The family of this 87-nucleotide sequence from Sporomusa ovata is "Glycine riboswitch aptamer".
Taxonomically the source falls in Sporomusa (Bacteria, Bacillota, Negativicutes, Sporomusaceae).
The pairing is the family consensus, mapped onto this sequence.
A search with the family's covariance model found it, with a score of 69 bits.

[Rfam]
RNA sequence: AUGAUGGUUGCAGGAGAGAUCGCUUAAGCGGCGCCGAAGGAGAAAGUGCUUUGUCAAACUCUCAGGCAAAAGGACUGUAACCGGACU
Numbered sequence: 001a002u003g004a005u006g007g008u009u010g011c012a013g014g015a016g017a018g019a020u021c022g023c024u025u026a027a028g029c030g031g032c033g034c035c036g037a038a039g040g041a042g043a044a045a046g047u048g049c050u051u052u053g054u055c056a057a058a059c060u061c062u063c064a065g066g067c068a069a070a071a072g073g074a075c076u077g078u079a080a081c082c083g084g085a086c087u
Base pairs, nucleotide, nucleotide: 006082007081008080009079010078011077012076013075020031021030022029023028033067034066035065036063037062040061041060042059046054047053